The record is a 134-nucleotide sequence from Dromaius novaehollandiae, which matches "Small nucleolar RNA SNORA71" in Rfam. The match comes from Rfam's covariance-model search (125 bits). About the family: The members of this family belong to the H/ACA class of snoRNAs which bind a number of proteins (including dyskerin, Gar1p and Nop10p) to form snoRNP complexes. This class of snoRNAs are thought to guide the sites of modification of uridines to pseudouridines by forming direct base pairing interactions with substrate RNAs. This family includes U71 (SNORA71), ACA39 (SNORA39) and ACA60 (SNORA60). Rfam 15.1 lists 1,805 matches to the family in 606 species. NCBI's taxonomy places the organism under Eukaryota, Gnathostomata, Dinosauria, Saurischia, Dromaius. Gene Ontology terms of the family: nucleolus and RNA processing.

RNA sequence: ACCUGCAUUCGAAAGUGAUUUAGGUCUGGUGUGUGACCUGAUCAUUGAUAGUGCAGGAAGAGGAAUUUUUGAAAGCGUUUCCCGUGUUUGGUGGGUUCGGUACCAUCCCUCCCAAACCCUGUAGCUUUCAGACA
Number, nucleotide and partner (000 for none) at each position: 001a000002c057003c056004u055005g054006c053007a052008u051009u050010c000011g000012a000013a000014a046015g045016u044017g043018a042019u041020u040021u000022a000023g038024g037025u036026c035027u000028g000029g000030u000031g000032u000033g000034u000035g026036a025037c024038c023039u000040g020041a019042u018043c017044a016045u015046u014047g000048a000049u000050a009051g008052u007053g006054c005055a004056g003057g002058a000059a000060g000061a000062g000063g000064a000065a000066u000067u000068u131069u000070u130071g129072a128073a127074a126075g125076c124077g000078u000079u000080u000081c000082c000083c000084g000085u000086g117087u116088u115089u114090g113091g111092u000093g109094g108095g107096u000097u000098c000099g000100g000101u000102a000103c000104c000105a000106u000107c095108c094109c093110u000111c091112c000113c090114a089115a088116a087117c086118c000119c000120u000121g000122u000123a000124g076125c075126u074127u073128u072129c071130a070131g068132a000133c000134a000